[Rfam]
RNA sequence: GAGCAAUGAUAAAAAAUAUAUUACUGACCUUUAUAACUGUUGUUUUCUACACUUGAUCUGAGCUCA
Numbered sequence: 001g002a003g004c005a006a007u008g009a010u011a012a013a014a015a016a017u018a019u020a021u022u023a024c025u026g027a028c029c030u031u032u033a034u035a036a037c038u039g040u041u042g043u044u045u046u047c048u049a050c051a052c053u054u055g056a057u058c059u060g061a062g063c064u065c066a
Base pairs, nucleotide, nucleotide: 001065002064003063004062013032014031015030017026

Small nucleolar RNA U2-30: a 66-nucleotide RNA from Cervus elaphus. Pairs were carried over by alignment from the consensus structure, which is taken from published work. Rfam classes the family as a C/D-box small nucleolar RNA. On this family, see Tycowski et al., Curr Biol 2004: "Guide RNAs with 5' Caps and Novel Box C/D snoRNA-like Domains for Modification of snRNAs in Metazoa".